RNA sequence: CCUCCUUUUCUUGGUGGGAACUGGGCAUAUGGUCCCCCUCCGGGUUAUGUGCAGAGGCAGAGGGAAAGGCCUCCCGCCCCCUCAGGGUCACGUCGCUGGUGGCUUUCUAUUUGCUGGUUCUAUCUUCAAGUGCUGAGACACUG
Dot-bracket structure: ((((..........(..(.(..(((........)))..).)..).........)))).........................(((.((.......(((((((........)))))))............)).)))........

Rfam assigns this 143-nucleotide RNA sequence from Otolemur garnettii to the family "Small nucleolar RNA SNORA57".
Taxonomically the source falls in Otolemur (Eukaryota, Vertebrata, Dipnotetrapodomorpha, Tetrapoda).
From the family's description: U99 belongs to the H/ACA class of snoRNAs which are thought to guide the sites of modification of uridines to pseudouridines, the target for this family is unknown.
Rfam links the family to the GO terms nucleolus and RNA processing.
It scores 93 bits against the family's covariance model.